Annotation
Shown here is an 81-nucleotide RNA sequence from Homo sapiens, a member of the family "mir-4433 microRNA precursor family". The family's consensus secondary structure was predicted with RNAalifold. The family has 2 seed sequences and 36 matches in Rfam 15.1.
RNA sequence: UAUCCUCCUUAUGUCCCACCCCCACUCCUGUUUGAAUAUUUCACCAGAAACAGGAGUGGGGGGUGGGACGUAAGGAGGAUG
Numbered sequence: 001u002a003u004c005c006u007c008c009u010u011a012u013g014u015c016c017c018a019c020c021c022c023c024a025c026u027c028c029u030g031u032u033u034g035a036a037u038a039u040u041u042c043a044c045c046a047g048a049a050a051c052a053g054g055a056g057u058g059g060g061g062g063g064u065g066g067g068a069c070g071u072a073a074g075g076a077g078g079a080u081g
Stems, first nucleotide, its partner, number of pairs: 002080022024057010